[Rfam]
Rfam assigns this 199-nucleotide sequence from Acidovorax sp. CF316 to the family "Manganese Mn2+ riboswitch aptamer (yybP-ykoY)".
RNA sequence: ACAAUUGUGAUGUCUUUGGGGAGUAGCCCGCCCGGUCGUUCCAUGCGCCGGGGGCAUGCGUCAACACACUUGGGUUCCUUGCAACCCAUGGCGCAUGCGGUUUUUCAUUCUUUCUUGAAUGAGCUGGGCAAGACCAUUGACUGCAUGCCGAUCCAAUGGCCGGAGUCGGGGUGCAGUCAAUGCGUUCGCACAACAAUCC
Numbered sequence: 001a002c003a004a005u006u007g008u009g010a011u012g013u014c015u016u017u018g019g020g021g022a023g024u025a026g027c028c029c030g031c032c033c034g035g036u037c038g039u040u041c042c043a044u045g046c047g048c049c050g051g052g053g054g055c056a057u058g059c060g061u062c063a064a065c066a067c068a069c070u071u072g073g074g075u076u077c078c079u080u081g082c083a084a085c086c087c088a089u090g091g092c093g094c095a096u097g098c099g100g101u102u103u104u105u106c107a108u109u110c111u112u113u114c115u116u117g118a119a120u121g122a123g124c125u126g127g128g129c130a131a132g133a134c135c136a137u138u139g140a141c142u143g144c145a146u147g148c149c150g151a152u153c154c155a156a157u158g159g160c161c162g163g164a165g166u167c168g169g170g171g172u173g174c175a176g177u178c179a180a181u182g183c184g185u186u187c188g189c190a191c192a193a194c195a196a197u198c199c
Stems, first nucleotide, its partner, number of pairs: 031052006054098010071088005099198004104193002
Dot-bracket structure: ..............................((((((..........)))))).((((((((((.......(((((........)))))))))))))))((((.((......................................................................................)).)))).
About the family: This RNA was originally discovered in E. coli during a large scale screen and was named SraF. The family was later found to exist upstream of related families of protein genes in many bacteria, including the the yybP and ykoK genes in B. subtilis. The specific functions of these proteins are unknown, but this structured RNA element may be involved in their genetic regulation as a riboswitch.
The organism belongs to Acidovorax, within Bacteria.
It scores 58 bits against the family's covariance model.